This 100-nucleotide RNA from Gasterosteus aculeatus belongs to the Rfam family "Vault RNA".

[Rfam]
RNA sequence: GCGUCGGUUUAGCUCAGUGGUUACUUCUGGUCAUGUGUUUGCCUUCCCUCGGGCUCUUCUGGGGCCCUGAGUUCGACCACGGGCGCUGUCCGAUGCAUUU
Numbered sequence: 001g002c003g004u005c006g007g008u009u010u011a012g013c014u015c016a017g018u019g020g021u022u023a024c025u026u027c028u029g030g031u032c033a034u035g036u037g038u039u040u041g042c043c044u045u046c047c048c049u050c051g052g053g054c055u056c057u058u059c060u061g062g063g064g065c066c067c068u069g070a071g072u073u074c075g076a077c078c079a080c081g082g083g084c085g086c087u088g089u090c091c092g093a094u095g096c097a098u099u100u
Stems, first nucleotide, its partner, number of pairs: 002095006012084004017080004026076002029073003

Rfam's curators put it in the seed alignment. Lineage of the source: Eukaryota > Clupeocephala > Ctenosquamata > Gasterosteales > Gasterosteus.